[Rfam]
RNA sequence: CGCAGUUCCGCGCUGACGCCUGGACCGGGGACCCAUCGCAGUUCUGGGGUGAAGCGCGACCGGCACGCAGGUGCCGGUGCGCCGGGCGAGUUCCCCCGUCCGAACCCGUCAGCUAACUCGGUAGGCGGUUGCGGAGAACAA
Numbered sequence: 001c002g003c004a005g006u007u008c009c010g011c012g013c014u015g016a017c018g019c020c021u022g023g024a025c026c027g028g029g030g031a032c033c034c035a036u037c038g039c040a041g042u043u044c045u046g047g048g049g050u051g052a053a054g055c056g057c058g059a060c061c062g063g064c065a066c067g068c069a070g071g072u073g074c075c076g077g078u079g080c081g082c083c084g085g086g087c088g089a090g091u092u093c094c095c096c097c098g099u100c101c102g103a104a105c106c107c108g109u110c111a112g113c114u115a116a117c118u119c120g121g122u123a124g125g126c127g128g129u130u131g132c133g134g135a136g137a138a139c140a141a
Base pairs, nucleotide, nucleotide: 001127002126003125008023009022010021024122025121026120027119028118029117034046035045047107048106049105055081056080057079058078084101085100086099087098

Rfam assigns this 141-nucleotide RNA sequence from Modestobacter sp. DSM 44400 to the family "c-di-AMP riboswitch aptamer (ydaO/yuaA leader)". A search with the family's covariance model found it, with a score of 61 bits. The base pairs follow the family's consensus structure. Gene Ontology terms of the family: cyclic-di-AMP binding and regulation of gene expression. Taxonomically the source falls in Modestobacter (Bacteria, Bacillati, Actinomycetota, Geodermatophilaceae).